[Rfam]
RNA sequence: UGCUGAGGAAAUCUUCGGGAGUUAACUGCCGCCGGUUUUCUAAAACUUCGGCAGUUAACUGCCGAUGAGCAU
Numbered sequence: 001u002g003c004u005g006a007g008g009a010a011a012u013c014u015u016c017g018g019g020a021g022u023u024a025a026c027u028g029c030c031g032c033c034g035g036u037u038u039u040c041u042a043a044a045a046c047u048u049c050g051g052c053a054g055u056u057a058a059c060u061g062c063c064g065a066u067g068a069g070c071a072u
Stems, first nucleotide, its partner, number of pairs: 012068002015065004020060012
RNA: MIR2629 microRNA precursor family